[Rfam]
RNA: mir-1285 microRNA precursor family
Organism: Pan troglodytes
RNA sequence: AUGAGGUUUCACCUUGCUGGCCAGGCUGGUCUUGAACUCCUGGUUCGAGACCAGCCUGGCCAACAAGGUGAAACCCCGU
Numbered sequence: 001a002u003g004a005g006g007u008u009u010c011a012c013c014u015u016g017c018u019g020g021c022c023a024g025g026c027u028g029g030u031c032u033u034g035a036a037c038u039c040c041u042g043g044u045u046c047g048a049g050a051c052c053a054g055c056c057u058g059g060c061c062a063a064c065a066a067g068g069u070g071a072a073a074c075c076c077c078g079u
Base pairs, nucleotide, nucleotide: 007073008072009071010070011069012068013067014066019061020060021059022058023057024056025055032054033053034052